The family of this 73-nucleotide RNA sequence from Anaerobranca californiensis is "Glycine riboswitch aptamer". A reference for the family is Babina et al. (2017), "In Vivo Behavior of the Tandem Glycine Riboswitch in Bacillus subtilis", MBio. The organism belongs to Anaerobranca californiensis, within Bacteria.

RNA sequence: CUCUGGAAAGUCCGAAAGGGCACCGAAGGAGCAACCCUUCUUGAGGGGAAAUCUCUCAGGUUUAAAGACAGAG
Numbered sequence: 001c002u003c004u005g006g007a008a009a010g011u012c013c014g015a016a017a018g019g020g021c022a023c024c025g026a027a028g029g030a031g032c033a034a035c036c037c038u039u040c041u042u043g044a045g046g047g048g049a050a051a052u053c054u055c056u057c058a059g060g061u062u063u064a065a066a067g068a069c070a071g072a073g
Stems, first nucleotide, its partner, number of pairs: 001073005012020002022061003025057002029055003035048005